[Rfam]
RNA sequence: AACGUAAAGAUAAUUAAUUUCGAUAUAUAUCAAAAGAUAUGGUUUUGAAGUUUCUACCCGGAUACCGUAAAUAACCGGACUAUCGAGAUAUCAUAAGGCAGC
Number, nucleotide and partner (000 for none) at each position: 001a000002a000003c000004g000005u000006a000007a000008a000009g000010a000011u000012a000013a000014u000015u000016a000017a000018u088019u087020u086021c085022g084023a083024u082025a081026u000027a000028u000029a000030u048031c047032a046033a045034a044035a043036g000037a000038u000039a000040u000041g000042g000043u035044u034045u033046u032047g031048a030049a000050g000051u000052u000053u000054c000055u000056a000057c000058c078059c077060g076061g075062a000063u073064a072065c000066c000067g000068u000069a000070a000071a000072u064073a063074a000075c061076c060077g059078g058079a000080c000081u025082a024083u023084c022085g021086a020087g019088a018089u000090a000091u000092c000093a000094u000095a000096a000097g000098g000099c000100a000101g000102c000